RNA sequence: CGGAGCUGGUAAUAACAAACUAGUUUGUGCCUAGAUGUUCCCGAGUGGUACACUCGACUUAAGUCUAGGAACAUCACAGCUAGCACUGCCGCUCUA
Numbered sequence: 001c002g003g004a005g006c007u008g009g010u011a012a013u014a015a016c017a018a019a020c021u022a023g024u025u026u027g028u029g030c031c032u033a034g035a036u037g038u039u040c041c042c043g044a045g046u047g048g049u050a051c052a053c054u055c056g057a058c059u060u061a062a063g064u065c066u067a068g069g070a071a072c073a074u075c076a077c078a079g080c081u082a083g084c085a086c087u088g089c090c091g092c093u094c095u096a
Stems, first nucleotide, its partner, number of pairs: 002095005009089002025079005030069007042056005
RNA: DUF3800-V RNA